[Rfam]
RNA sequence: AUAUCCAAUUGUUGAGUGAGGCUCCUGUAUGGAGAUAAGCUAUUGCCCAGAAAUGUCCAGAGACACCAAUGGGUAGAACAGAUAGCAGACCGAAUUAAGGCCUAUCUAAGAUAGCUGACUAAUAUAGUCUAUGUCAUACAGUGCUAAAGCUUAGACGAGGAGUUGGGUGC
Numbered sequence: 001a002u003a004u005c006c007a008a009u010u011g012u013u014g015a016g017u018g019a020g021g022c023u024c025c026u027g028u029a030u031g032g033a034g035a036u037a038a039g040c041u042a043u044u045g046c047c048c049a050g051a052a053a054u055g056u057c058c059a060g061a062g063a064c065a066c067c068a069a070u071g072g073g074u075a076g077a078a079c080a081g082a083u084a085g086c087a088g089a090c091c092g093a094a095u096u097a098a099g100g101c102c103u104a105u106c107u108a109a110g111a112u113a114g115c116u117g118a119c120u121a122a123u124a125u126a127g128u129c130u131a132u133g134u135c136a137u138a139c140a141g142u143g144c145u146a147a148a149g150c151u152u153a154g155a156c157g158a159g160g161a162g163u164u165g166g167g168u169g170c
Stems, first nucleotide, its partner, number of pairs: 005166006011156002013098001015151003020145003025141008039115005045074005054065004081106004090100002117129003
RNA: M-box riboswitch aptamer (ykoK leader)
Organism: Halanaerobium hydrogeniformans